[Rfam]
RNA sequence: GACAUCCACUAGGGGGGCCUUUAGAAAGGCUGAGAUCAAAGUGUGCCUUUGAGACCCUUAGCACCUGAUCUGGGUAAUACCAGCGUAGGGAAGUGGAGAGGAGCUACA
Numbered sequence: 001g002a003c004a005u006c007c008a009c010u011a012g013g014g015g016g017g018c019c020u021u022u023a024g025a026a027a028g029g030c031u032g033a034g035a036u037c038a039a040a041g042u043g044u045g046c047c048u049u050u051g052a053g054a055c056c057c058u059u060a061g062c063a064c065c066u067g068a069u070c071u072g073g074g075u076a077a078u079a080c081c082a083g084c085g086u087a088g089g090g091a092a093g094u095g096g097a098g099a100g101g102a103g104c105u106a107c108a
Stems, first nucleotide, its partner, number of pairs: 006096005011058004017030005037051005064089004070083004